Rfam assigns this 135-nucleotide RNA from Candolleomyces eurysporus to the family "U4 spliceosomal RNA". The family's RNA type in Rfam is spliceosomal small nuclear RNA. Its family is annotated with spliceosomal tri-snRNP complex assembly and U4 snRNP in the Gene Ontology.
[Rfam]
RNA sequence: UCUCUUGUGCUCGGGCAUGUGCUGUUGCCAGUGAGGUUUCUACCGAGGCGCAGCUUUUUUGCUGAUUGCAAAUUACACAUCCGAACUCGUCUCUCAGCUUAGGCUUUGAGCAAUUUUUGGAAAAAAAAAUCAUUA
Dot-bracket structure: ....................(((((.(((.....(((....)))..))))))))..................................(.(((..(((....)))..)))).............((......)).
Pairs were carried over by alignment from the consensus structure, which is taken from published work.